[Rfam]
RNA sequence: AAAAAGGGUCGAUUGGCUAUGUAUGCCACACACAUCUUUUAAUUGAUGAGCGAUGUAUGGUUAUUAAGACAUAUGAUCGACAUAAUUUAUGGAUUUUAUAGGGCUGGUUUAUUCGGCUAACCCUUAU
Numbered sequence: 001a002a003a004a005a006g007g008g009u010c011g012a013u014u015g016g017c018u019a020u021g022u023a024u025g026c027c028a029c030a031c032a033c034a035u036c037u038u039u040u041a042a043u044u045g046a047u048g049a050g051c052g053a054u055g056u057a058u059g060g061u062u063a064u065u066a067a068g069a070c071a072u073a074u075g076a077u078c079g080a081c082a083u084a085a086u087u088u089a090u091g092g093a094u095u096u097u098a099u100a101g102g103g104c105u106g107g108u109u110u111a112u113u114c115g116g117c118u119a120a121c122c123c124u125u126a127u
Base pairs, nucleotide, nucleotide: 008081009080010079011078012077014028015027016026017025029052031050033048034047035046036045054075055074056073057072058071059070100124101123102122103121105119106118107117109116110115
RNA: U11 spliceosomal RNA
Organism: Dendrobium nobile